[Rfam]
Rfam assigns this 76-nucleotide RNA sequence from Propithecus coquereli to the family "mir-320 microRNA precursor family". The family has 38 seed sequences and 659 matches in Rfam 15.1. A search with the family's covariance model found it, with a score of 70 bits.
RNA sequence: AUGGACUGUGGCCUUCUUUUCCUAGUUCUUCCCGGAAUCUGGAAAAGCUGGGUUGAGAGGGCAAAAGUACACACGU
Numbered sequence: 001a002u003g004g005a006c007u008g009u010g011g012c013c014u015u016c017u018u019u020u021c022c023u024a025g026u027u028c029u030u031c032c033c034g035g036a037a038u039c040u041g042g043a044a045a046a047g048c049u050g051g052g053u054u055g056a057g058a059g060g061g062c063a064a065a066a067g068u069a070c071a072c073a074c075g076u
Stems, first nucleotide, its partner, number of pairs: 014059005021052005029044004034039001